[Rfam]
Rfam assigns this 86-nucleotide sequence from Pyrus ussuriensis x Pyrus communis to the family "MIR398 microRNA precursor family". Taxonomically the source falls in Pyrus (Eukaryota, rosids, Rosaceae, Amygdaloideae).
RNA sequence: AGGGGUUCUGUAGGAGUGACCUGAGAUCACAUAUGGCGCUAUGUGUUGCGCUUGAUGUGUUCUCAGGUCGCCCCUGCGGCACCUUC
Numbered sequence: 001a002g003g004g005g006u007u008c009u010g011u012a013g014g015a016g017u018g019a020c021c022u023g024a025g026a027u028c029a030c031a032u033a034u035g036g037c038g039c040u041a042u043g044u045g046u047u048g049c050g051c052u053u054g055a056u057g058u059g060u061u062c063u064c065a066g067g068u069c070g071c072c073c074c075u076g077c078g079g080c081a082c083c084u085u086c
Base pairs, nucleotide, nucleotide: 008079011076012075013074014073016071017070018069019068023064024063025062026061028059029058030057031056032055